[Rfam]
RNA sequence: AAAUGAAUAUCAUUUAUACCGUAGACAGUAGGUGCUCAAACCCUUGAGCUUAAUAUCCUGCCGAGGUAAUUCGAUAAAAAGUAGUCAGCCGACUAUGAUUUUUGAAAUUACUGCCUUCAUGUCUGCCAGAUAUGAAGGCUUUUUGUUUGGGCGG
Numbered sequence: 001a002a003a004u005g006a007a008u009a010u011c012a013u014u015u016a017u018a019c020c021g022u023a024g025a026c027a028g029u030a031g032g033u034g035c036u037c038a039a040a041c042c043c044u045u046g047a048g049c050u051u052a053a054u055a056u057c058c059u060g061c062c063g064a065g066g067u068a069a070u071u072c073g074a075u076a077a078a079a080a081g082u083a084g085u086c087a088g089c090c091g092a093c094u095a096u097g098a099u100u101u102u103u104g105a106a107a108u109u110a111c112u113g114c115c116u117u118c119a120u121g122u123c124u125g126c127c128a129g130a131u132a133u134g135a136a137g138g139c140u141u142u143u144u145g146u147u148u149g150g151g152c153g154g
Stems, first nucleotide, its partner, number of pairs: 028061005034049006113139010
A member of the RNA family "Ribosomal protein L10 leader" from Peribacillus cavernae, 154 nucleotides long. By type it is a cis-regulatory leader. Its family is annotated with regulation of gene expression in the Gene Ontology. A search with the family's covariance model found it, with a score of 79 bits. On this family, see Zengel and Lindahl, Prog Nucleic Acid Res Mol Biol 1994: "Diverse mechanisms for regulating ribosomal protein synthesis in Escherichia coli". The source organism's lineage runs through Bacteria, Bacillati, Bacillota, Bacillaceae and Peribacillus.